RNA sequence: UGGCCAUGAUGACAUCUUAGGACACCUUUGGAGGCUUUGUUCCUAUGAAACCACUCAAGUCUGAGCUAU
Dot-bracket structure: ((((............................................................)))).

Shown here is a 69-nucleotide RNA sequence from Eleutherodactylus coqui, a member of the family "Small nucleolar RNA SNORD58". For this family Rfam cites "Purified box C/D snoRNPs are able to reproduce site-specific 2'-O-methylation of target RNA in vitro" (Galardi et al., Mol Cell Biol, 2002). Pairs were carried over by alignment from the consensus structure, which was predicted with PFOLD. Its Rfam clan is "SNORD58 clan". Rfam's curators write: snoRNA U58 is found in introns 1, 3 and 6 of the ribosomal protein RPL17 gene in humans. The source organism's lineage runs through Eukaryota, Bilateria, Eleutherodactylidae, Eleutherodactylinae and Eleutherodactylus. It scores 51 bits against the family's covariance model. The family's RNA type in Rfam is C/D-box small nucleolar RNA. Rfam 15.1 lists 2,484 matches to the family in 680 species.